[Rfam]
Rfam assigns this 95-nucleotide sequence from Nonomuraea endophytica to the family "Glycine riboswitch aptamer". NCBI's taxonomy places the organism under Bacteria, Bacillati, Actinomycetota, Actinomycetes, Nonomuraea. A search with the family's covariance model found it, with a score of 48 bits. The family is grouped with related families in Rfam's "Glycine riboswitch clan".
RNA sequence: GUGCCUCUGGAAAGCAGGCCUCCGGGCCUCGCCGAAGGUGAAAGUCCGGCAAAACCCGGGCGAAGCUCUCAGGCAUCGAUGACAGAGGGGGAGGA
Numbered sequence: 001g002u003g004c005c006u007c008u009g010g011a012a013a014g015c016a017g018g019c020c021u022c023c024g025g026g027c028c029u030c031g032c033c034g035a036a037g038g039u040g041a042a043a044g045u046c047c048g049g050c051a052a053a054a055c056c057c058g059g060g061c062g063a064a065g066c067u068c069u070c071a072g073g074c075a076u077c078g079a080u081g082a083c084a085g086a087g088g089g090g091g092a093g094g095a
Stems, first nucleotide, its partner, number of pairs: 002090001004088006016029004031074003034070002038068001040066001044061005